RNA: Antizyme RNA frameshifting stimulation element
Organism: Myotis myotis
RNA sequence: UGGUGCCCGUCACCCACUGAGGAAGAUCCCCGUGGGGCAAGGGGCGGCAGGGAUC
Numbered sequence: 001u002g003g004u005g006c007c008c009g010u011c012a013c014c015c016a017c018u019g020a021g022g023a024a025g026a027u028c029c030c031c032g033u034g035g036g037g038c039a040a041g042g043g044g045c046g047g048c049a050g051g052g053a054u055c
Stems, first nucleotide, its partner, number of pairs: 006043003010039001013036005025055006